[Rfam]
RNA sequence: UGAUGCUCAGACUUUCAAACUCGGAAGCUGUUCGUGCUUGCACGAUAAAGCUUCUGAACUUGAAAGUCGCCAAACAUGAGAAAGUAGCGAUUUACGGAGUAAAUCAGCGGAUUUCGAAUGUUUGCAGGAUUGCGGGAGCAGCAAAGCUGCGGAGCAAUCCGGGGCAUCA
Numbered sequence: 001u002g003a004u005g006c007u008c009a010g011a012c013u014u015u016c017a018a019a020c021u022c023g024g025a026a027g028c029u030g031u032u033c034g035u036g037c038u039u040g041c042a043c044g045a046u047a048a049a050g051c052u053u054c055u056g057a058a059c060u061u062g063a064a065a066g067u068c069g070c071c072a073a074a075c076a077u078g079a080g081a082a083a084g085u086a087g088c089g090a091u092u093u094a095c096g097g098a099g100u101a102a103a104u105c106a107g108c109g110g111a112u113u114u115c116g117a118a119u120g121u122u123u124g125c126a127g128g129a130u131u132g133c134g135g136g137a138g139c140a141g142c143a144a145a146g147c148u149g150c151g152g153a154g155c156a157a158u159c160c161g162g163g164g165c166a167u168c169a
Stems, first nucleotide, its partner, number of pairs: 001169007011067004017061002021057009031047001032045005071124007080115004087108002089105007127160007138150004
RNA: Clostridiales-1 RNA